RNA: Fusobacteriales-1 RNA
RNA sequence: UCUUACUUUUUGCAACAUGCGUAAGAAUGUUGCUAAAAUUUCCUUUUGCAAUGUUCAAUGGUAAAGCGUUGCUAAAGUCUUAUUUCCUUUUGCAACGUGAGGAUGAACGUUGC
Numbered sequence: 001u002c003u004u005a006c007u008u009u010u011u012g013c014a015a016c017a018u019g020c021g022u023a024a025g026a027a028u029g030u031u032g033c034u035a036a037a038a039u040u041u042c043c044u045u046u047u048g049c050a051a052u053g054u055u056c057a058a059u060g061g062u063a064a065a066g067c068g069u070u071g072c073u074a075a076a077g078u079c080u081u082a083u084u085u086c087c088u089u090u091u092g093c094a095a096c097g098u099g100a101g102g103a104u105g106a107a108c109g110u111u112g113c
Stems, first nucleotide, its partner, number of pairs: 006021001008019001012033007048072007086101001088099001092113007